[Rfam]
RNA sequence: CCUUCGAAAAGGCUCACCCGCGCGAAAGCCGGGGUCGCAAAGUCACCGGUCUUCGAGCGCCAGCCGGCGCGUCAUGACAGCGGAACUGCCGAG
Numbered sequence: 001c002c003u004u005c006g007a008a009a010a011g012g013c014u015c016a017c018c019c020g021c022g023c024g025a026a027a028g029c030c031g032g033g034g035u036c037g038c039a040a041a042g043u044c045a046c047c048g049g050u051c052u053u054c055g056a057g058c059g060c061c062a063g064c065c066g067g068c069g070c071g072u073c074a075u076g077a078c079a080g081c082g083g084a085a086c087u088g089c090c091g092a093g
Base pairs, nucleotide, nucleotide: 012038013037017033018032019031020030022029023028041087042086043085046083047082048081049078050077051076056072058071059070060069
This 93-nucleotide RNA sequence from Rhizobacter sp. Root404 belongs to the Rfam family "c-di-GMP-I riboswitch aptamer". The organism belongs to Rhizobacter, within Bacteria.